The record is a 108-nucleotide RNA sequence from Fodinibius salipaludis, which matches "Bacteroidales small SRP" in Rfam. The base pairs follow the family's consensus structure, which is taken from published work. Its family is annotated with SRP-dependent cotranslational protein targeting to membrane, signal sequence recognition and signal recognition particle, plasma membrane targeting in the Gene Ontology. A reference for the family is Ryan et al. (2020), "A high-resolution transcriptome map identifies small RNA regulation of metabolism in the gut microbe Bacteroides thetaiotaomicron", Nat Commun.
RNA sequence: CUUUCGAGGGUAGGCCCUACGCAGCCAGCUCCCUCUGAACUCCGUCAGGACCGGAAGGUAGCAGCGGUAGGAGGUUGUAGCGGCGUGAUGUAGGUUGCUUACCCUCUC
Dot-bracket structure: .......((((((((.(((((((((.........................................................)).)).)))))...))))))))....
Rfam classes the family as a non-coding RNA gene.